[Rfam]
The record is an 82-nucleotide sequence from Roseobacter insulae, which matches "Singlet oxygen resistance RNA X" in Rfam.
The match comes from Rfam's covariance-model search (64 bits).
Gene Ontology term of the family: response to photooxidative stress.
Rfam describes the family as follows. SorX (RSs2461)like SorY is a singlet oxygen induced sRNA that counteracts oxidative stress by targeting mRNA for a transporter in Rhodobacter. It also has an impact on resistance against organic hydroperoxides. It targets SD sequence of potA mRNA via an aSD sequence.
Pairs were carried over by alignment from the consensus structure.
RNA sequence: AUCUCUUGAAGGCGCGGAUGCCCUGCAUCUGCCUUCAUACCUCCCUGUUGGACUUGGCCGAGCUUCGUGCUCGGCCUUUUUU
Numbered sequence: 001a002u003c004u005c006u007u008g009a010a011g012g013c014g015c016g017g018a019u020g021c022c023c024u025g026c027a028u029c030u031g032c033c034u035u036c037a038u039a040c041c042u043c044c045c046u047g048u049u050g051g052a053c054u055u056g057g058c059c060g061a062g063c064u065u066c067g068u069g070c071u072c073g074g075c076c077u078u079u080u081u082u
Base pairs, nucleotide, nucleotide: 008036009035010034011033012032013031014030056076057075058074059073060072061071062070063069

Notes:
It is annotated as a small RNA.